Rfam assigns this 379-nucleotide sequence from Pedobacter heparinus to the family "Bacterial RNase P class A". Rfam links the family to the GO terms ribonuclease P activity, dimeric ribonuclease P complex and tRNA processing.

RNA sequence: AAUGCAAGCUGUUCUAUCGCUGGCCCGGUUCGCCGGGAAAGAGGAAAGUCCGGGCAACACAGAGCAUCCCGCUUCCUAACGGGAAGAGGUUCAGGAAUGAAUACCUGAAUUAUGGAAAGUGCCGCAGAAAAUAUACCGCCGAUGGCUUUUAAGCACAGGUAAGGUUGAAAACGUGAGGUAAGGGCUCACGAGUUUUGCCAGUGAUGGCAAGGUUGGUAAACCCCGGGAGUUGAAAGACCAAAUAGGCUAACGCAUGUAGGGCUGCUCGUCCGAUGUUAGUGGGUAGGUCGUUAGAGAUAAAUGGCAACAUUUAUAGUAGAUUAAUGGUAGAAGCCCGAUUUAUCGGGAACAGAACCCGGCUUACAGGCUUGCAUUUUUU
Numbered sequence: 001a002a003u004g005c006a007a008g009c010u011g012u013u014c015u016a017u018c019g020c021u022g023g024c025c026c027g028g029u030u031c032g033c034c035g036g037g038a039a040a041g042a043g044g045a046a047a048g049u050c051c052g053g054g055c056a057a058c059a060c061a062g063a064g065c066a067u068c069c070c071g072c073u074u075c076c077u078a079a080c081g082g083g084a085a086g087a088g089g090u091u092c093a094g095g096a097a098u099g100a101a102u103a104c105c106u107g108a109a110u111u112a113u114g115g116a117a118a119g120u121g122c123c124g125c126a127g128a129a130a131a132u133a134u135a136c137c138g139c140c141g142a143u144g145g146c147u148u149u150u151a152a153g154c155a156c157a158g159g160u161a162a163g164g165u166u167g168a169a170a171a172c173g174u175g176a177g178g179u180a181a182g183g184g185c186u187c188a189c190g191a192g193u194u195u196u197g198c199c200a201g202u203g204a205u206g207g208c209a210a211g212g213u214u215g216g217u218a219a220a221c222c223c224c225g226g227g228a229g230u231u232g233a234a235a236g237a238c239c240a241a242a243u244a245g246g247c248u249a250a251c252g253c254a255u256g257u258a259g260g261g262c263u264g265c266u267c268g269u270c271c272g273a274u275g276u277u278a279g280u281g282g283g284u285a286g287g288u289c290g291u292u293a294g295a296g297a298u299a300a301a302u303g304g305c306a307a308c309a310u311u312u313a314u315a316g317u318a319g320a321u322u323a324a325u326g327g328u329a330g331a332a333g334c335c336c337g338a339u340u341u342a343u344c345g346g347g348a349a350c351a352g353a354a355c356c357c358g359g360c361u362u363a364c365a366g367g368c369u370u371g372c373a374u375u376u377u378u379u
Base pairs, nucleotide, nucleotide: 001375002374003373004372005371006370007369008368009367010366011364012332013331014330015329016328017327018326020041021040024037025036026035027034028033046362047361048360050359051358052357053356054355055232056231057230058229062267063266064265065264067228068227069226070225071224072086073085074084075083076082087113088111089110090109091108092107093106094105095104114223115222119221120220121217122216123215136164137163138160139159140158143155145154146153147152172190173189174188175187176186177185193212194211195210196209197208198207199206200205236289237288238287239286246280247279248278249277250276251275259271260270261269262268297314298313299312300311301310302309303308
Taxonomically the source falls in Pedobacter heparinus (Bacteria, Bacteroidota, Sphingobacteriales, Sphingobacteriaceae). Ribonuclease P (RNase P) is a ubiquitous endoribonuclease, found in archaea, bacteria and eukarya as well as chloroplasts and mitochondria.